The record is a 365-nucleotide RNA from Paenibacillus nuruki, which matches "transfer-messenger RNA" in Rfam. Rfam classes the family as a non-coding RNA gene. Rfam links the family to the GO term RNA catabolic process. Rfam's curators write: Bacterial tmRNA, also known as 10Sa RNA or SsrA, is named for its dual tRNA and mRNA-like properties. Its role is to liberate the mRNA from a stalled ribosome. To accomplish this part of the tmRNA is used as a reading frame that ends in a translation stop signal.
RNA sequence: GGGGGCGUUUAUGGAUUCGACGGGGGUAGUUCGAGCAUGAGUAGCGGGUAGUGGGGACGCGUCCGCUUUAUCAACGCUAAAGCCUAUUAAACGGCAAACAACAAACUAACUACGCUUUCGCAGCUUAAUAACCUGUGAGCGUGCUCUCCCCUCGCAUCGCCCAUGUGCCAGGACGAGGGCCCAACUAAUAGUGGGCUACGCUGUCACAUCUCCGCCUGAGGUGUGCUGAAUAAGAUAACCAGGCUGACCCAAAGGGAAUCCGGUGACAGGGAGUUCCUAGGGUGACAUCAAAUCUGUCACUACACCCGUAGAAGCUUAUGUAACGUUGCCUUCGGACAGGGGUUCGACUCCCCUCGCCUCCAUUA
Numbered sequence: 001g002g003g004g005g006c007g008u009u010u011a012u013g014g015a016u017u018c019g020a021c022g023g024g025g026g027u028a029g030u031u032c033g034a035g036c037a038u039g040a041g042u043a044g045c046g047g048g049u050a051g052u053g054g055g056g057a058c059g060c061g062u063c064c065g066c067u068u069u070a071u072c073a074a075c076g077c078u079a080a081a082g083c084c085u086a087u088u089a090a091a092c093g094g095c096a097a098a099c100a101a102c103a104a105a106c107u108a109a110c111u112a113c114g115c116u117u118u119c120g121c122a123g124c125u126u127a128a129u130a131a132c133c134u135g136u137g138a139g140c141g142u143g144c145u146c147u148c149c150c151c152u153c154g155c156a157u158c159g160c161c162c163a164u165g166u167g168c169c170a171g172g173a174c175g176a177g178g179g180c181c182c183a184a185c186u187a188a189u190a191g192u193g194g195g196c197u198a199c200g201c202u203g204u205c206a207c208a209u210c211u212c213c214g215c216c217u218g219a220g221g222u223g224u225g226c227u228g229a230a231u232a233a234g235a236u237a238a239c240c241a242g243g244c245u246g247a248c249c250c251a252a253a254g255g256g257a258a259u260c261c262g263g264u265g266a267c268a269g270g271g272a273g274u275u276c277c278u279a280g281g282g283u284g285a286c287a288u289c290a291a292a293u294c295u296g297u298c299a300c301u302a303c304a305c306c307c308g309u310a311g312a313a314g315c316u317u318a319u320g321u322a323a324c325g326u327u328g329c330c331u332u333c334g335g336a337c338a339g340g341g342g343u344u345c346g347a348c349u350c351c352c353c354u355c356g357c358c359u360c361c362a363u364u365a
Stems, first nucleotide, its partner, number of pairs: 001361007021334010035321008045308005050067005059077004117139007143180006150172003154168004159196006201228001203226001205225005214244005247283004252278001254276003259272003263300004269293001338354005